[Rfam]
RNA sequence: GGAAUAUAAAAAACUGACUCUUAACUUUUAACUAAAAAAACUAAGAAUCGGCUCGGUUCUUAGCUUUUUUUAGUUAAAAGUUAAGAGACUAUUUUUUAUAUUCC
Numbered sequence: 001g002g003a004a005u006a007u008a009a010a011a012a013a014c015u016g017a018c019u020c021u022u023a024a025c026u027u028u029u030a031a032c033u034a035a036a037a038a039a040a041c042u043a044a045g046a047a048u049c050g051g052c053u054c055g056g057u058u059c060u061u062a063g064c065u066u067u068u069u070u071u072a073g074u075u076a077a078a079a080g081u082u083a084a085g086a087g088a089c090u091a092u093u094u095u096u097u098a099u100a101u102u103c104c
Base pairs, nucleotide, nucleotide: 001104002103003102004101005100006099007098008097009096010095011094012093013092016089018087019086020085021084022083023082024081025080026079027078028077029076030075031074032073033072034071035070036069037068038067039066041063042062043061044060045059046058047057
RNA: MIR9563 microRNA precursor family